[Rfam]
RNA sequence: AGCUACCCUAGCCCGACGGGGCGAAAAGCGGGCACCUUCACCCGCCUGGGUUGGCUUUCCUUGAAGG
Numbered sequence: 001a002g003c004u005a006c007c008c009u010a011g012c013c014c015g016a017c018g019g020g021g022c023g024a025a026a027a028g029c030g031g032g033c034a035c036c037u038u039c040a041c042c043c044g045c046c047u048g049g050g051u052u053g054g055c056u057u058u059c060c061u062u063g064a065a066g067g
Stems, first nucleotide, its partner, number of pairs: 003053001005051004011022004028045005035067005
int-alpA RNA: a 67-nucleotide RNA sequence from Nitrosomonas nitrosa.
The organism belongs to Nitrosomonas, within Bacteria.
Rfam classes the family as a small RNA.
The match comes from Rfam's covariance-model search (59 bits).